[Rfam]
Description:
This 168-nucleotide RNA sequence from Blautia sp. OF03-15BH belongs to the Rfam family "Clostridiales-1 RNA". Rfam classes the family as a small RNA. It scores 132 bits against the family's covariance model.
RNA sequence: UGAUACCAGUGUCAAAAGGUCAAAAAGCCGUUCAUGCUUGCAUGAUAAGGCUUUUGAACUUGGGACACGCCAAAUAUGAGAAAGUAGCGAUUUACGCAGUAAAUCAGCGGAUUUCGAAUAUUUGGAGGAUUGCGGGAGCAGCGUAGCUGUGUAGCAAUCCGGGUAUCA
Numbered sequence: 001u002g003a004u005a006c007c008a009g010u011g012u013c014a015a016a017a018g019g020u021c022a023a024a025a026a027g028c029c030g031u032u033c034a035u036g037c038u039u040g041c042a043u044g045a046u047a048a049g050g051c052u053u054u055u056g057a058a059c060u061u062g063g064g065a066c067a068c069g070c071c072a073a074a075u076a077u078g079a080g081a082a083a084g085u086a087g088c089g090a091u092u093u094a095c096g097c098a099g100u101a102a103a104u105c106a107g108c109g110g111a112u113u114u115c116g117a118a119u120a121u122u123u124g125g126a127g128g129a130u131u132g133c134g135g136g137a138g139c140a141g142c143g144u145a146g147c148u149g150u151g152u153a154g155c156a157a158u159c160c161g162g163g164u165a166u167c168a
Stems, first nucleotide, its partner, number of pairs: 001168007010067004016061003020057003024054006031047001032045005070125008080115004087108002089105007127160007138150004